The record is a 90-nucleotide RNA sequence from Bacillus sp. T33-2, which matches "c-di-GMP-I riboswitch aptamer" in Rfam. The family's consensus secondary structure is taken from published work.
[Rfam]
RNA sequence: GUACGAUAAUGGCAAAAUCAUUGAAAAAUGAUGACGCAAAGCUUAAGGGACUAAAGUUACCGAAUGUAACUAUGUCAGCCAGCUGCCGAA
Numbered sequence: 001g002u003a004c005g006a007u008a009a010u011g012g013c014a015a016a017a018u019c020a021u022u023g024a025a026a027a028a029u030g031a032u033g034a035c036g037c038a039a040a041g042c043u044u045a046a047g048g049g050a051c052u053a054a055a056g057u058u059a060c061c062g063a064a065u066g067u068a069a070c071u072a073u074g075u076c077a078g079c080c081a082g083c084u085g086c087c088g089a090a
Stems, first nucleotide, its partner, number of pairs: 012037002017032006040084004047080002049076003056070004